[Rfam]
A member of the RNA family "terC RNA" from Rhizobium sp. NFR07, 59 nucleotides long.
RNA sequence: CACCAGGACCGGGCCCCUCUGGCAGUUUGCGUUGUGAACUGUGAUGUCGGACUGGAUUU
Number, nucleotide and partner (000 for none) at each position: 001c000002a000003c000004c000005a000006g053007g052008a000009c050010c049011g048012g047013g000014c000015c000016c000017c000018u000019c000020u000021g000022g042023c041024a040025g039026u038027u037028u036029g035030c000031g000032u000033u000034g000035u029036g028037a027038a026039c025040u024041g023042u022043g000044a000045u000046g000047u012048c011049g010050g009051a000052c007053u006054g000055g000056a000057u000058u000059u000